Background: Bacterial large subunit ribosomal RNA: a 476-nucleotide part of an RNA from Streptomyces seoulensis. A search with the family's covariance model found it, with a score of 2765 bits. Pairs were carried over by alignment from the consensus structure, which is taken from published work.
[Rfam]
RNA sequence: GAUACAAACGUGAGAAACGUUUGCGCCGAUUGACUAAGGGUUCCUGGGUCAAGCUGAUCUGCCCAGGGUAAGUCGGGACCUAAGGCGAGGCCGACAGGCGUAGUCGAUGGAUAACCGGUUGAUAUUCCGGUACCCGCUGUGAAGCGUCAAACAUCGAGCAUCGUGAUGCUAAGGCCGUGAAGCCGUUCCGGACCCUUCGGGGAAUGGAAAGUGGUGGAGCCGCCGGCCCAAGCGGUUAGUAGGUGAGUGAUGGGGUGACGCAGGAAGGUAGUCCAGCCCAGGCGGUGGUUGUCCUGGGGUAAGGGUGUAGGACGCAAGGUAGGCAAAUCCGCCUUGCACAUAGUCUGAGACCUGAUGCCGAGCCGAUUGUGGUGAAGUGGAUGAUCCUAUGCUGUCGAGAAAAGCCUCUAGCGAGUUUCAUAGCGGCCCGUACCCUAAACCGACUCAGGUGGUCAGGUAGAGAAUACCGAGGCGUU
Numbered sequence: 001g002a003u004a005c006a007a008a009c010g011u012g013a014g015a016a017a018c019g020u021u022u023g024c025g026c027c028g029a030u031u032g033a034c035u036a037a038g039g040g041u042u043c044c045u046g047g048g049u050c051a052a053g054c055u056g057a058u059c060u061g062c063c064c065a066g067g068g069u070a071a072g073u074c075g076g077g078a079c080c081u082a083a084g085g086c087g088a089g090g091c092c093g094a095c096a097g098g099c100g101u102a103g104u105c106g107a108u109g110g111a112u113a114a115c116c117g118g119u120u121g122a123u124a125u126u127c128c129g130g131u132a133c134c135c136g137c138u139g140u141g142a143a144g145c146g147u148c149a150a151a152c153a154u155c156g157a158g159c160a161u162c163g164u165g166a167u168g169c170u171a172a173g174g175c176c177g178u179g180a181a182g183c184c185g186u187u188c189c190g191g192a193c194c195c196u197u198c199g200g201g202g203a204a205u206g207g208a209a210a211g212u213g214g215u216g217g218a219g220c221c222g223c224c225g226g227c228c229c230a231a232g233c234g235g236u237u238a239g240u241a242g243g244u245g246a247g248u249g250a251u252g253g254g255g256u257g258a259c260g261c262a263g264g265a266a267g268g269u270a271g272u273c274c275a276g277c278c279c280a281g282g283c284g285g286u287g288g289u290u291g292u293c294c295u296g297g298g299g300u301a302a303g304g305g306u307g308u309a310g311g312a313c314g315c316a317a318g319g320u321a322g323g324c325a326a327a328u329c330c331g332c333c334u335u336g337c338a339c340a341u342a343g344u345c346u347g348a349g350a351c352c353u354g355a356u357g358c359c360g361a362g363c364c365g366a367u368u369g370u371g372g373u374g375a376a377g378u379g380g381a382u383g384a385u386c387c388u389a390u391g392c393u394g395u396c397g398a399g400a401a402a403a404g405c406c407u408c409u410a411g412c413g414a415g416u417u418u419c420a421u422a423g424c425g426g427c428c429c430g431u432a433c434c435c436u437a438a439a440c441c442g443a444c445u446c447a448g449g450u451g452g453u454c455a456g457g458u459a460g461a462g463a464a465u466a467c468c469g470a471g472g473c474g475u476u
Stems, first nucleotide, its partner, number of pairs: 005023006024474004032454004038434002043067006052060002074430004079110002084105003088101001090099003114131005134426011247412002252408005260395004266388003271382005277298006299358002303353004310346003314337007322330002362373004440449002456468004